RNA: Purine riboswitch aptamer
Organism: Mariniplasma anaerobium
RNA sequence: ACUAUUUGUGUAUAUAAUUAUCGUAUAAGUUAUCUAUGAUGGAGAUAACGUUUCUACCGGAAUGCCUUAUAUUCCGACUACGAUUAAUUAAACAUUUAGG
Dot-bracket structure: .................(.((((((...(((((((.......)))))))........(((((((.....)))))))..)))))).)..............